[Rfam]
RNA sequence: AGCCACUGAGGACGGAACGGGCUACCGUCACCACGCUGAAAGCGGCGGAGAUGUGGGAUACGCCAACCCACCUUGGUU
Numbered sequence: 001a002g003c004c005a006c007u008g009a010g011g012a013c014g015g016a017a018c019g020g021g022c023u024a025c026c027g028u029c030a031c032c033a034c035g036c037u038g039a040a041a042g043c044g045g046c047g048g049a050g051a052u053g054u055g056g057g058a059u060a061c062g063c064c065a066a067c068c069c070a071c072c073u074u075g076g077u078u
Base pairs, nucleotide, nucleotide: 001078002077003076004075005074008072011029012028013027014026015025020064021063022062031048034044035043036042053071054070055069056068057067